Shown here is an 86-nucleotide RNA from Xylella fastidiosa, a member of the family "sRNA-Xcc1". The match comes from Rfam's covariance-model search (79 bits). Rfam 15.1 lists 421 matches to the family in 299 species. Rfam classes the family as a small RNA.
RNA sequence: GUCGGGAGGGCGGCAGCCAUACAACACCCGCAAGGGGAAAGCUGCCCGCCGUCUAGGCUCGGUUCUUAACCUCCCGACACCCACAG
Numbered sequence: 001g002u003c004g005g006g007a008g009g010g011c012g013g014c015a016g017c018c019a020u021a022c023a024a025c026a027c028c029c030g031c032a033a034g035g036g037g038a039a040a041g042c043u044g045c046c047c048g049c050c051g052u053c054u055a056g057g058c059u060c061g062g063u064u065c066u067u068a069a070c071c072u073c074c075c076g077a078c079a080c081c082c083a084c085a086g
Stems, first nucleotide, its partner, number of pairs: 001078009012046004017041001027036003048063004